[Rfam]
RNA sequence: CGGAUGCGCUCCCCGAUCUCUACAAGAUCUGGGCAGGAGUGGGGGACCCACAGGUUCCACGCGGUCUCCGGAUCGCUCGGGGUGAAGCCACCUAGGUGGCGGAGCACUUUCCAGCUCUAACCCGACAGCUCACCUCACAGGCGUGGGAAAGGAACACA
Numbered sequence: 001c002g003g004a005u006g007c008g009c010u011c012c013c014c015g016a017u018c019u020c021u022a023c024a025a026g027a028u029c030u031g032g033g034c035a036g037g038a039g040u041g042g043g044g045g046a047c048c049c050a051c052a053g054g055u056u057c058c059a060c061g062c063g064g065u066c067u068c069c070g071g072a073u074c075g076c077u078c079g080g081g082g083u084g085a086a087g088c089c090a091c092c093u094a095g096g097u098g099g100c101g102g103a104g105c106a107c108u109u110u111c112c113a114g115c116u117c118u119a120a121c122c123c124g125a126c127a128g129c130u131c132a133c134c135u136c137a138c139a140g141g142c143g144u145g146g147g148a149a150a151g152g153a154a155c156a157c158a
Stems, first nucleotide, its partner, number of pairs: 001140001005038001007036001039138006049079001080123003088099004102117004

Shown here is a 158-nucleotide RNA sequence from Nocardioides jejuensis, a member of the family "c-di-AMP riboswitch aptamer (ydaO/yuaA leader)". The match comes from Rfam's covariance-model search (59 bits). This family represents a conserved RNA structure found upstream of the ydaO and yuaA genes in Bacillus subtilis and related genes in other bacteria. The organism belongs to Nocardioides, within Bacteria.